[Rfam]
RNA: U2 spliceosomal RNA
RNA sequence: AUACCUUUCACGGCCUUUAGGCUAAGAUCAAGUGUAGUUUCUGUUCUUAUCAGUUUAAUAUCUGAUACGUGGGCCUUCGACUCACAAGAUAUUAAAAUUAUUUUUUGAGGGGGAAGGUGUAUGACAGUAGCUUGCUACUGGGGCUCUCGAGCGUCACCAAUGCGUUACACUACUGCUUGGGCCUGGCGCGCCUCAC
Numbered sequence: 001a002u003a004c005c006u007u008u009c010a011c012g013g014c015c016u017u018u019a020g021g022c023u024a025a026g027a028u029c030a031a032g033u034g035u036a037g038u039u040u041c042u043g044u045u046c047u048u049a050u051c052a053g054u055u056u057a058a059u060a061u062c063u064g065a066u067a068c069g070u071g072g073g074c075c076u077u078c079g080a081c082u083c084a085c086a087a088g089a090u091a092u093u094a095a096a097a098u099u100a101u102u103u104u105u106u107g108a109g110g111g112g113g114a115a116g117g118u119g120u121a122u123g124a125c126a127g128u129a130g131c132u133u134g135c136u137a138c139u140g141g142g143g144c145u146c147u148c149g150a151g152c153g154u155c156a157c158c159a160a161u162g163c164g165u166u167a168c169a170c171u172a173c174u175g176c177u178u179g180g181g182c183c184u185g186g187c188g189c190g191c192c193u194c195a196c
Base pairs, nucleotide, nucleotide: 008027009026012023013022014021015020048067049066050065051064052063053062069085070084071083072082073081075079113148114147116145117144118143120141127138128137129136130135151189152188153187154186155185156184158180160178162176163175
Dot-bracket structure: .......((..((((....))))..))....................((((((........)))))).(((((.(...).)))))...........................((.(((.(......((((....))))..).))).))..((((((.(.(.((...........)).).)...)))))).......